Rfam assigns this 114-nucleotide RNA from Lactiplantibacillus plantarum to the family "Ribosomal protein L10 leader".
[Rfam]
RNA sequence: GGUUAAGUAAUAUCUCUACCUAAGACUCAGGCGGCUUAACGGCCUUAAUCUACCUGCCGAGGACAUUGUUUUUUCUCUAUGUCUUGGUGGACAUAGGGAUUUUUUUAUAAAUCC
Numbered sequence: 001g002g003u004u005a006a007g008u009a010a011u012a013u014c015u016c017u018a019c020c021u022a023a024g025a026c027u028c029a030g031g032c033g034g035c036u037u038a039a040c041g042g043c044c045u046u047a048a049u050c051u052a053c054c055u056g057c058c059g060a061g062g063a064c065a066u067u068g069u070u071u072u073u074u075c076u077c078u079a080u081g082u083c084u085u086g087g088u089g090g091a092c093a094u095a096g097g098g099a100u101u102u103u104u105u106u107a108u109a110a111a112u113c114c
Stems, first nucleotide, its partner, number of pairs: 028056004033044003074099010
It is one of the family's seed sequences. The base pairs follow the family's consensus structure, which was predicted with CMfinder. This family is a putative r-protein leader autoregulatory structure found in B. subtilis and other low-GC Gram-positive bacteria. The family's RNA type in Rfam is cis-regulatory leader.